Background:
The record is a 65-nucleotide RNA sequence from Ramlibacter tataouinensis, which matches "Betaproteobacteria toxic small RNA" in Rfam.
[Rfam]
RNA sequence: UGUCUCCUCCACCUCUCCUUUGGUGGAUUUAGCCCCUGGAUCGCAAGGUCUGGGGGCUUUUUUCU
Numbered sequence: 001u002g003u004c005u006c007c008u009c010c011a012c013c014u015c016u017c018c019u020u021u022g023g024u025g026g027a028u029u030u031a032g033c034c035c036c037u038g039g040a041u042c043g044c045a046a047g048g049u050c051u052g053g054g055g056g057c058u059u060u061u062u063u064c065u
Base pairs, nucleotide, nucleotide: 008027009026010025011024012023013022031058032057033056034055035054036053037052038051039050040049041048042047
A reference for the family is Kimelman et al. (2012), "A vast collection of microbial genes that are toxic to bacteria", Genome Res. The source organism's lineage runs through Bacteria, Pseudomonadati, Burkholderiales, Comamonadaceae and Ramlibacter tataouinensis. From the family's description: Overexpression in amino aid rich medium attenuates growth, suggesting role in repressing amino acid intake and metabolism. It scores 52 bits against the family's covariance model.